This 231-nucleotide sequence from Kaistia soli belongs to the Rfam family "Ruegeria cis90 sRNA".

RNA sequence: AGUUCGAGGCAACCAGCGGCUCGCGGAAAUUGGCCUGCUGCAUCGGAUCGAAAUAGCCGGUGGGGCUCGCCAUCAUCAAAGUGAAGGUGCGGGUCGAGCUCAGCCACUGCAGGAAGAGGAAUGCGGCUUCGGCGUUCGGCGACUUGGACGAGAUCCAGCCGCUGAUGCUGUAAUGCAGGAUCGACCGGCGGUUGAUCUUGUCGCCGAACCGGCGACCGACGGGAGCAUGCG
Numbered sequence: 001a002g003u004u005c006g007a008g009g010c011a012a013c014c015a016g017c018g019g020c021u022c023g024c025g026g027a028a029a030u031u032g033g034c035c036u037g038c039u040g041c042a043u044c045g046g047a048u049c050g051a052a053a054u055a056g057c058c059g060g061u062g063g064g065g066c067u068c069g070c071c072a073u074c075a076u077c078a079a080a081g082u083g084a085a086g087g088u089g090c091g092g093g094u095c096g097a098g099c100u101c102a103g104c105c106a107c108u109g110c111a112g113g114a115a116g117a118g119g120a121a122u123g124c125g126g127c128u129u130c131g132g133c134g135u136u137c138g139g140c141g142a143c144u145u146g147g148a149c150g151a152g153a154u155c156c157a158g159c160c161g162c163u164g165a166u167g168c169u170g171u172a173a174u175g176c177a178g179g180a181u182c183g184a185c186c187g188g189c190g191g192u193u194g195a196u197c198u199u200g201u202c203g204c205c206g207a208a209c210c211g212g213c214g215a216c217c218g219a220c221g222g223g224a225g226c227a228u229g230c231g
Base pairs, nucleotide, nucleotide: 002216003215004027005026009022011021013019014018031157032156033155035152036151039147042144050143054139056137060133061132063130064128065127066126068089069088070087071086072082073081093124094123099118100117101116104113105112158213159212160211161210167204168203170201171200179193180192181191182190183189220231221230
About this RNA: Rfam classes the family as a small RNA.